[Rfam]
RNA sequence: UUAAUUCAAAUUAGUAAGCAGUUGGAACAGCGCCCCUAGCGGCAUACGCAGGCAAACGUUCCGACUCCAUACAAAUUUGAGUUA
Numbered sequence: 001u002u003a004a005u006u007c008a009a010a011u012u013a014g015u016a017a018g019c020a021g022u023u024g025g026a027a028c029a030g031c032g033c034c035c036c037u038a039g040c041g042g043c044a045u046a047c048g049c050a051g052g053c054a055a056a057c058g059u060u061c062c063g064a065c066u067c068c069a070u071a072c073a074a075a076u077u078u079g080a081g082u083u084a
Stems, first nucleotide, its partner, number of pairs: 008078005014072003018068001020066009034052002039047001

This 84-nucleotide RNA sequence from Bombyx mori belongs to the Rfam family "mir-2807 microRNA precursor family".
On this family, see Liu et al., BMC Genomics 2010: "MicroRNAs of Bombyx mori identified by Solexa sequencing".
The source organism's lineage runs through Eukaryota, Pancrustacea, Dicondylia, Obtectomera and Bombyx.